Shown here is a 46-nucleotide RNA sequence from Sus scrofa, a member of the family "Histone 3' UTR stem-loop".
[Rfam]
Nucleotides: 046
Base pairs, nucleotide, nucleotide: 006021007020008019009018010017011016
Number, partner (000 for none) and nucleotide at each position: 001000c002000c003000a004000a005000a006021g007020g008019c009018u010017c011016u012000u013000u014000u015000c016011a017010g018009a019008g020007c021006c022000a023000c024000c025000u026000a027000c028000c029000c030000u031000u032000u033000c034000a035000g036000a037000g038000a039000a040000a041000c042000a043000g044000g045000u046000g

Rfam classes the family as a cis-regulatory element.
On this family, see Zhang et al., Proc Natl Acad Sci U S A 2014: "Molecular mechanisms for the regulation of histone mRNA stem-loop-binding protein by phosphorylation".
Its family is annotated with mRNA 3'-end processing by stem-loop binding and cleavage in the Gene Ontology.